[Rfam]
Shown here is a 76-nucleotide RNA from Callithrix jacchus, a member of the family "mir-320 microRNA precursor family".
RNA sequence: UUGAAAUUGGGCCUUCUCUUGCCGGUUCUUCCUGGAGUUGGUAAAAGCUGGGUUGAGAGGGCGAAAAAAAAAAAAG
Numbered sequence: 001u002u003g004a005a006a007u008u009g010g011g012c013c014u015u016c017u018c019u020u021g022c023c024g025g026u027u028c029u030u031c032c033u034g035g036a037g038u039u040g041g042u043a044a045a046a047g048c049u050g051g052g053u054u055g056a057g058a059g060g061g062c063g064a065a066a067a068a069a070a071a072a073a074a075a076g
Stems, first nucleotide, its partner, number of pairs: 014059005022051004029044002032041003
About this RNA
The family has 38 seed sequences and 659 matches in Rfam 15.1. It scores 75 bits against the family's covariance model. Rfam links the family to the GO terms cellular response to glucose stimulus, positive regulation of stem cell proliferation and negative regulation of gene expression.